[Rfam]
RNA sequence: GAAGUGCUUUAGGGGUGCCAACAGGCUGAGACAAUACCCUCAAAACCUGAUCAGGAUAAUGCCUGCGAAGGGAAAAGUAAAAGAAGAUUU
Numbered sequence: 001g002a003a004g005u006g007c008u009u010u011a012g013g014g015g016u017g018c019c020a021a022c023a024g025g026c027u028g029a030g031a032c033a034a035u036a037c038c039c040u041c042a043a044a045a046c047c048u049g050a051u052c053a054g055g056a057u058a059a060u061g062c063c064u065g066c067g068a069a070g071g072g073a074a075a076a077g078u079a080a081a082a083g084a085a086g087a088u089u090u
Stems, first nucleotide, its partner, number of pairs: 006078005011040004016034001017026003046071003052065004
Shown here is a 90-nucleotide RNA from Filimonas lacunae, a member of the family "TPP riboswitch aptamer (THI element)". A search with the family's covariance model found it, with a score of 72 bits. Lineage of the source: Bacteria > Pseudomonadati > Chitinophagia > Chitinophagaceae > Filimonas.